This 76-nucleotide RNA from Homo sapiens belongs to the Rfam family "mir-3190 microRNA precursor family".

[Rfam]
RNA sequence: GGGGUCACCUCUCUGGCCGUCUACCUUCCACACUGACAAGGGCCGUGGGGACGUAGCUGGCCAGACAGGUGACCCC
Dot-bracket structure: ((((((((((.(((((((..((((...((.(((...........)))))...))))..))))))).))))))))))

NCBI's taxonomy places the organism under Eukaryota, Eumetazoa, Amniota, Catarrhini, Homo.